[Rfam]
RNA: ZMP/ZTP riboswitch aptamer (pfl RNA motif)
RNA sequence: CGCAGGGCCGCUGACUGACGGAAUCUGGUGGGUAUGACCACCGGGGAAGCGGGCUAUUCCCUGCAUUAAGCCGACCGUCUGGGCUGCAUAC
Numbered sequence: 001c002g003c004a005g006g007g008c009c010g011c012u013g014a015c016u017g018a019c020g021g022a023a024u025c026u027g028g029u030g031g032g033u034a035u036g037a038c039c040a041c042c043g044g045g046g047a048a049g050c051g052g053g054c055u056a057u058u059c060c061c062u063g064c065a066u067u068a069a070g071c072c073g074a075c076c077g078u079c080u081g082g083g084c085u086g087c088a089u090a091c
Stems, first nucleotide, its partner, number of pairs: 005055002008052005015045002017079005028041004069085004